[Rfam]
RNA sequence: GCAGCACCUCGUUGGGCGAGGCUUCUGCGCGGACACAGGCCACUGACCCCGAACGUCGAGAGACGCCCCGGGUCAGGACAGCUCACUCCGGAUUAAGGGGUGCGCCCAAGUGGCUGCCCGGCCAGGCAGUUCGGCCGGGAAUACGCCGUGCAGUGCUGAAGCCGUGACGAGAGAGGUGCCUU
Number, nucleotide and partner (000 for none) at each position: 001g000002c000003a000004g000005c178006a177007c176008c175009u174010c173011g168012u167013u096014g000015g163016g162017c161018g000019a000020g157021g156022c155023u000024u000025c153026u152027g151028c150029g149030c148031g147032g146033a000034c000035a000036c000037a000038g000039g114040c113041c112042a111043c110044u000045g074046a073047c072048c071049c070050c000051g000052a000053a000054c065055g064056u063057c062058g000059a000060g000061a000062g057063a056064c055065g054066c000067c000068c000069c000070g049071g048072g047073u046074c045075a000076g000077g000078a000079c000080a000081g105082c104083u000084c102085a000086c000087u099088c098089c097090g000091g000092a000093u000094u000095a000096a013097g089098g088099g087100g000101u000102g084103c000104g082105c081106c000107c000108a000109a000110g043111u042112g041113g040114c039115u000116g000117c000118c000119c000120g000121g000122c000123c000124a000125g000126g000127c000128a000129g000130u000131u000132c000133g000134g000135c000136c000137g000138g000139g000140a000141a000142u000143a000144c000145g000146c032147c031148g030149u029150g028151c027152a026153g025154u000155g022156c021157u020158g000159a000160a000161g017162c016163c015164g000165u000166g000167a012168c011169g000170a000171g000172a000173g010174a009175g008176g007177u006178g005179c000180c000181u000182u000